The family of this 124-nucleotide RNA is "Betaproteobacteria-1 RNA". Rfam classes the family as a small RNA.
RNA sequence: CGCCAUGCUGGACGCGACUACGAGAGGCACCAGCAGCAUGGGGACAGCCUAACUGGGGGGAAAGUGGUUGAGACUAGGCAUCGGGUGGCGAAGGUAGCGCCCGUAUCACGCACGGCUGCCGGGC
Numbered sequence: 001c002g003c004c005a006u007g008c009u010g011g012a013c014g015c016g017a018c019u020a021c022g023a024g025a026g027g028c029a030c031c032a033g034c035a036g037c038a039u040g041g042g043g044a045c046a047g048c049c050u051a052a053c054u055g056g057g058g059g060g061a062a063a064g065u066g067g068u069u070g071a072g073a074c075u076a077g078g079c080a081u082c083g084g085g086u087g088g089c090g091a092a093g094g095u096a097g098c099g100c101c102c103g104u105a106u107c108a109c110g111c112a113c114g115g116c117u118g119c120c121g122g123g124c
Stems, first nucleotide, its partner, number of pairs: 001043001003041008030056004047079005065108004082103005093120006